This 279-nucleotide RNA from Dipodomys ordii belongs to the Rfam family "RNase MRP". RNase MRP is an enzymatically active ribonucleoprotein with two distinct roles in eukaryotes. In mitochondria it plays a direct role in the initiation of mitochondrial DNA replication. In the nucleus it is involved in precursor rRNA processing, where it cleaves the internal transcribed spacer 1 between 18S and 5.8S rRNAs. Despite distinct functions, RNase MRP has been shown to be evolutionarily related to RNase P. Like eukaryotic RNase P, RNase MRP is not catalytically active without associated protein subunits. The family's RNA type in Rfam is ribozyme. The match comes from Rfam's covariance-model search (205 bits). Rfam links the family to the GO terms ribonuclease MRP activity, rRNA processing and ribonuclease MRP complex.

RNA sequence: GUUCGUGCUGAAGGCCUGUUUCCUAGGCUACAAACGGGGGACUAGUUCCCGGCCAACCCGCCUAGGGGAAAGUCCCCGGACCCUUGGCAGAGAGUGCCACGUGUGUACGCACGCAGACUUACCCCACCUCGCACUGGUUAGUCCGCCAAGAUGCGACCCCGCUCCUGUGGCGGGCGAGCUGAGCGGCGUGUGACGGGGCGUCAUCCGUCAGCUCUCCUAGUUACGCAGGCAGUGCGCCUCCUAGCGCGCCAACCACACGGGGCUCAUUCUCGGCACGGA
Numbered sequence: 001g002u003u004c005g006u007g008c009u010g011a012a013g014g015c016c017u018g019u020u021u022c023c024u025a026g027g028c029u030a031c032a033a034a035c036g037g038g039g040g041a042c043u044a045g046u047u048c049c050c051g052g053c054c055a056a057c058c059c060g061c062c063u064a065g066g067g068g069a070a071a072g073u074c075c076c077c078g079g080a081c082c083c084u085u086g087g088c089a090g091a092g093a094g095u096g097c098c099a100c101g102u103g104u105g106u107a108c109g110c111a112c113g114c115a116g117a118c119u120u121a122c123c124c125c126a127c128c129u130c131g132c133a134c135u136g137g138u139u140a141g142u143c144c145g146c147c148a149a150g151a152u153g154c155g156a157c158c159c160c161g162c163u164c165c166u167g168u169g170g171c172g173g174g175c176g177a178g179c180u181g182a183g184c185g186g187c188g189u190g191u192g193a194c195g196g197g198g199c200g201u202c203a204u205c206c207g208u209c210a211g212c213u214c215u216c217c218u219a220g221u222u223a224c225g226c227a228g229g230c231a232g233u234g235c236g237c238c239u240c241c242u243a244g245c246g247c248g249c250c251a252a253c254c255a256c257a258c259g260g261g262g263c264u265c266a267u268u269c270u271c272g273g274c275a276c277g278g279a
Base pairs, nucleotide, nucleotide: 002279003278004277005276006275007274008273009272010271011270014230015229016228017227018226019225022066023065024064025063026062027061028060037050038049039048040047041046071264072263074262075261076260077259086098087097088096089095100113101112102111103110104109116202117201118200122198123197124196125195131191132190133189134188143186144185145184146183232249233248234247235246236245237244
Dot-bracket structure: .((((((((((..((((((..(((((((........(((((....))))).........)))))))....[[.[[[[........((((.....)))).(((((....)))))..(((...((((.....((((........((((....................................)))).))))...)))).)))......................)))))).((((((......)))))).........]]]]]].....))))))))))